The family of this 78-nucleotide RNA sequence from Gordonia hirsuta is "Actino-pnp RNA".
RNA sequence: ACCGGUCCUCGGUAGUGGCUGCCGGAACGCACGCCCUCGCGGCGUAACGAAUUCCGGCAGCUUCGAUCGAAGGCCGUC
Number, nucleotide and partner (000 for none) at each position: 001a000002c000003c076004g075005g074006u073007c072008c000009u070010c069011g068012g067013u066014a000015g000016u000017g062018g061019c060020u059021g058022c057023c056024g055025g054026a053027a052028c000029g000030c000031a000032c000033g000034c000035c000036c000037u000038c000039g000040c000041g000042g000043c000044g000045u000046a000047a000048c000049g000050a000051a000052u027053u026054c025055c024056g023057g022058c021059a020060g019061c018062u017063u000064c000065g000066a013067u012068c011069g010070a009071a000072g007073g006074c005075c004076g003077u000078c000